[Rfam]
RNA sequence: AUUCCUUCCGUCGUGUAUCCUCGAUUCAUGCAGCUUCACAUACUUAA
Numbered sequence: 001a002u003u004c005c006u007u008c009c010g011u012c013g014u015g016u017a018u019c020c021u022c023g024a025u026u027c028a029u030g031c032a033g034c035u036u037c038a039c040a041u042a043c044u045u046a047a
Stems, first nucleotide, its partner, number of pairs: 010025004032044002
The record is a 47-nucleotide RNA sequence from Hordeum vulgare, which matches "Plastid-ycf3 group II-D1 intron" in Rfam. Plastid rpl16 is a non-coding RNA (ncRNA) recognised in plastids. The base pairs follow the family's consensus structure, which was predicted with LocARNA. The source organism's lineage runs through Eukaryota, Streptophyta, Magnoliopsida, Mesangiospermae and Hordeum vulgare. Its family is annotated with Group II intron splicing in the Gene Ontology. For this family Rfam cites "Retrograde signaling in plants: A critical review focusing on the GUN pathway and beyond" (Richter et al., Plant Commun, 2023).